This 94-nucleotide sequence from Candidozyma auris belongs to the Rfam family "tRNA".
[Rfam]
RNA sequence: GGCAUUGUGGCCGAGUGGUUAAGGCGAUGCACUCGAAUUUCUUCGAGCUAUGCAUUGGGCUCUGCCCGCGCAGGUUCGAAUCCUGCUGAUGUCG
Numbered sequence: 001g002g003c004a005u006u007g008u009g010g011c012c013g014a015g016u017g018g019u020u021a022a023g024g025c026g027a028u029g030c031a032c033u034c035g036a037a038u039u040u041c042u043u044c045g046a047g048c049u050a051u052g053c054a055u056u057g058g059g060c061u062c063u064g065c066c067c068g069c070g071c072a073g074g075u076u077c078g079a080a081u082c083c084u085g086c087u088g089a090u091g092u093c094g
Stems, first nucleotide, its partner, number of pairs: 001093007010025003027055005070086005
The organism belongs to Candidozyma auris, within Eukaryota. The family's RNA type in Rfam is transfer RNA.